[Rfam]
RNA sequence: CUAGGCAAUUGGAUUGUCGCUGCUUUAAUUAGCAGAGGAAAGUCCGGGCUCUAUAAAGACACGGUGCCAGUUAAUGGCUGGCAAGGGUGACCUUAGGGAUAGUGCCACAGAGAAUAGACCGCCAUAUCGAGGCAAGGGUGAAAAGGUGUGGUAAGAGCACACCGGUUUUUUGGUAACAAGAAACGCAUGGUAAACCCCACCGGGAGCAAGACUAAAAAGAGAUGACACCGCGAAAGCAAAAAACAGUCUUUAGUUAGUCAUCAGGGUUAGUCGCUUGAAUUUAAGUGCAAACUUAAAUCUAGAUAAAUGACAUCUUAAAUGACAGAACCCGGCUUAUAGAUUGCCUAGCAUA
Numbered sequence: 001c002u003a004g005g006c007a008a009u010u011g012g013a014u015u016g017u018c019g020c021u022g023c024u025u026u027a028a029u030u031a032g033c034a035g036a037g038g039a040a041a042g043u044c045c046g047g048g049c050u051c052u053a054u055a056a057a058g059a060c061a062c063g064g065u066g067c068c069a070g071u072u073a074a075u076g077g078c079u080g081g082c083a084a085g086g087g088u089g090a091c092c093u094u095a096g097g098g099a100u101a102g103u104g105c106c107a108c109a110g111a112g113a114a115u116a117g118a119c120c121g122c123c124a125u126a127u128c129g130a131g132g133c134a135a136g137g138g139u140g141a142a143a144a145g146g147u148g149u150g151g152u153a154a155g156a157g158c159a160c161a162c163c164g165g166u167u168u169u170u171u172g173g174u175a176a177c178a179a180g181a182a183a184c185g186c187a188u189g190g191u192a193a194a195c196c197c198c199a200c201c202g203g204g205a206g207c208a209a210g211a212c213u214a215a216a217a218a219g220a221g222a223u224g225a226c227a228c229c230g231c232g233a234a235a236g237c238a239a240a241a242a243a244c245a246g247u248c249u250u251u252a253g254u255u256a257g258u259c260a261u262c263a264g265g266g267u268u269a270g271u272c273g274c275u276u277g278a279a280u281u282u283a284a285g286u287g288c289a290a291a292c293u294u295a296a297a298u299c300u301a302g303a304u305a306a307a308u309g310a311c312a313u314c315u316u317a318a319a320u321g322a323c324a325g326a327a328c329c330c331g332g333c334u335u336a337u338a339g340a341u342u343g344c345c346u347a348g349c350a351u352a
Stems, first nucleotide, its partner, number of pairs: 001348010011337001012314003016311003020035005040335003044332005049206004057250002062202005067081005082096001083094004097197002102195002104191003119137002121133003125129001145163006164186001165184008210272004221262005242255003279298008
RNA: Bacterial RNase P class A